This 231-nucleotide part of an RNA from Furfurilactobacillus rossiae belongs to the Rfam family "Bacterial large subunit ribosomal RNA". The source organism's lineage runs through Bacteria, Bacillati, Bacilli, Furfurilactobacillus and Furfurilactobacillus rossiae.
[Rfam]
RNA sequence: GAGUUACGUUAACAUGCAAGGUUAAGGUGGAAAGACCGGAGCCGUAGCGAAAGCGAGUCUGAAAUGGGCGACUAAGUAUGUUGAAGUAAACCCGAAACCAGGUGACCUACCCAUGUGCAGGCUGAAAGUGCGGUAAUACGCACCGGAGGGCCGAACCCGUGUCUGUUGAAAAAGGCUGGGAUGACGUGUGGGUAGCGGUGAAAUUCCAAACGAACUUGGAGAUAGCUGGUU
Numbered sequence: 001g002a003g004u005u006a007c008g009u010u011a012a013c014a015u016g017c018a019a020g021g022u023u024a025a026g027g028u029g030g031a032a033a034g035a036c037c038g039g040a041g042c043c044g045u046a047g048c049g050a051a052a053g054c055g056a057g058u059c060u061g062a063a064a065u066g067g068g069c070g071a072c073u074a075a076g077u078a079u080g081u082u083g084a085a086g087u088a089a090a091c092c093c094g095a096a097a098c099c100a101g102g103u104g105a106c107c108u109a110c111c112c113a114u115g116u117g118c119a120g121g122c123u124g125a126a127a128g129u130g131c132g133g134u135a136a137u138a139c140g141c142a143c144c145g146g147a148g149g150g151c152c153g154a155a156c157c158c159g160u161g162u163c164u165g166u167u168g169a170a171a172a173a174g175g176c177u178g179g180g181a182u183g184a185c186g187u188g189u190g191g192g193u194a195g196c197g198g199u200g201a202a203a204u205u206c207c208a209a210a211c212g213a214a215c216u217u218g219g220a221g222a223u224a225g226c227u228g229g230u231u
Base pairs, nucleotide, nucleotide: 005088006087007086009084010083011082012081013080014079015078016077017076020043021042022041023040026037027036028035047054048053057069058068059067060066091229092228094226098219099218100217101216102215103214107195108194109193110192111191112190113189114188115187116186117185118183120152121151122150123149128143129142130141131140132139156180157179158178161176162175163174164173197207198206
Dot-bracket structure: ....(((.(((((((((..((((..(((......)))..))))...((....))..((((.....))))......))))))))).)))..((.(...((((((...((((((((((((.((((....(((((......))))).....))))...(((..((((........)))).)))..).))))))))))).((.......))......))))))......).))..